[Rfam]
RNA sequence: AAUAUGAUUUGUUAGGUGAGGCUCCUAUACAAACACAGGCUACUGCCCAAAAACGUCGAGAGACACCAAUGGGUAGAACAGGGAUUGUCGAAGACAAGGCUUUCCAUAAGGUAGCUGUUAAAAGUAACGACUUUUAACUACGUUGUACAGUGCUAAAGCCCAACGACUAGAUCAAUUG
Numbered sequence: 001a002a003u004a005u006g007a008u009u010u011g012u013u014a015g016g017u018g019a020g021g022c023u024c025c026u027a028u029a030c031a032a033a034c035a036c037a038g039g040c041u042a043c044u045g046c047c048c049a050a051a052a053a054c055g056u057c058g059a060g061a062g063a064c065a066c067c068a069a070u071g072g073g074u075a076g077a078a079c080a081g082g083g084a085u086u087g088u089c090g091a092a093g094a095c096a097a098g099g100c101u102u103u104c105c106a107u108a109a110g111g112u113a114g115c116u117g118u119u120a121a122a123a124g125u126a127a128c129g130a131c132u133u134u135u136a137a138c139u140a141c142g143u144u145g146u147a148c149a150g151u152g153c154u155a156a157a158g159c160c161c162a163a164c165g166a167c168u169a170g171a172u173c174a175a176u177u178g
Stems, first nucleotide, its partner, number of pairs: 005174006011164002013097001015160003020154003025150002028147005039115005045074005055064003082105003087100003117138007
Dot-bracket structure: ....(((((((([.(((..(((..((.(((((......(((((.(((((.....(((....))).....))))).......(((..(((.......])))..))).....))))).(((((((........)))))))....))))).)).)))...)))..))....))))))....

Shown here is a 178-nucleotide RNA sequence from Lapidilactobacillus dextrinicus, a member of the family "M-box riboswitch aptamer (ykoK leader)". The match comes from Rfam's covariance-model search (151 bits). M-box riboswitch, also know as ykoK leader is described as a metaloregulatory RNA that sense divalent metals and function as a genetic control element of genes related to divalent metal transport in bacteria. It was first reported upstream of the B.subtilis ykoK gene and genes with related functions in other bacteria.